[Rfam]
mir-2796 microRNA precursor family: a 78-nucleotide RNA from Nesidiocoris tenuis. The match comes from Rfam's covariance-model search (79 bits). Rfam 15.1 lists 119 matches to the family in 116 species.

RNA sequence: GAUGGAGAGCAGGGGUUUCUUUCGGCCUCCAGCCGUUUAUCAAAGUUGUAGGCCGGCGGAAACUACUUGCUUUCCAGU
Numbered sequence: 001g002a003u004g005g006a007g008a009g010c011a012g013g014g015g016u017u018u019c020u021u022u023c024g025g026c027c028u029c030c031a032g033c034c035g036u037u038u039a040u041c042a043a044a045g046u047u048g049u050a051g052g053c054c055g056g057c058g059g060a061a062a063c064u065a066c067u068u069g070c071u072u073u074c075c076a077g078u
Stems, first nucleotide, its partner, number of pairs: 005074004010069004014064007022056007030048003
Dot-bracket structure: ....((((.(((((((((((.(((((((.(((.............))).))))))).))))))).)))).))))....